[Rfam]
RNA: Group II catalytic intron D1-D4-2
Organism: Pseudolycoriella hygida
RNA sequence: GGAGGUAGGCCCUCCGUAGUUCGGUUUUCAGGAACUGGUUACAAACGACUGUAAGCUGCUGUAGUCAAAAGCUAUGGUAGUGAGCGUUACAGAAAAGGUGCAAGUAAUGUAUCACG
Numbered sequence: 001g002g003a004g005g006u007a008g009g010c011c012c013u014c015c016g017u018a019g020u021u022c023g024g025u026u027u028u029c030a031g032g033a034a035c036u037g038g039u040u041a042c043a044a045a046c047g048a049c050u051g052u053a054a055g056c057u058g059c060u061g062u063a064g065u066c067a068a069a070a071g072c073u074a075u076g077g078u079a080g081u082g083a084g085c086g087u088u089a090c091a092g093a094a095a096a097g098g099u100g101c102a103a104g105u106a107a108u109g110u111a112u113c114a115c116g
Base pairs, nucleotide, nucleotide: 001015002014003013004012005011016042017041018040019039020038022037024035025034026033027032046116047115049092050091051090052089053088054087055081056080058078059077060076062074063073064072065071097113098112099111100110101109102108